[Rfam]
RNA: XIST 3' intron conserved motif
RNA sequence: UUGACCUUUUCUGUUUUUAAUUCACUCACAGAGGGUGGGACAGGAGGCGAGUGAAUGAAAAGGCCAA
Numbered sequence: 001u002u003g004a005c006c007u008u009u010u011c012u013g014u015u016u017u018u019a020a021u022u023c024a025c026u027c028a029c030a031g032a033g034g035g036u037g038g039g040a041c042a043g044g045a046g047g048c049g050a051g052u053g054a055a056u057g058a059a060a061a062g063g064c065c066a067a
Base pairs, nucleotide, nucleotide: 001067002066003065005063006062007061008060009059010058011057022054023053024052025051026050027049